[Rfam]
RNA sequence: UUGUUCCUUCGGGGUCGGGUGAAAUUCCCAACCGACGGUGAUACGAAUGUGAUCAUUCGUUAAGUCCGUGACCCGGAUCACGCUCAAUUGUGACGUGAGAAGGUGGACUCGGUGUAAAUCCGAGACCGACAGUAAAGUCUGGAUGGGAGAAGGGAACG
Dot-bracket structure: ...(((((((......(((.......))).[[((((((.........................[[))))...((...........................))....(((((.......)))))]])).(((....]]))).......)))))))...
The family of this 158-nucleotide RNA from Paenibacillus selenitireducens is "FMN riboswitch aptamer (RFN element)". The match comes from Rfam's covariance-model search (109 bits). Lineage of the source: Bacteria > Bacillota > Caryophanales > Paenibacillaceae > Paenibacillus. Its family is annotated with FMN binding in the Gene Ontology.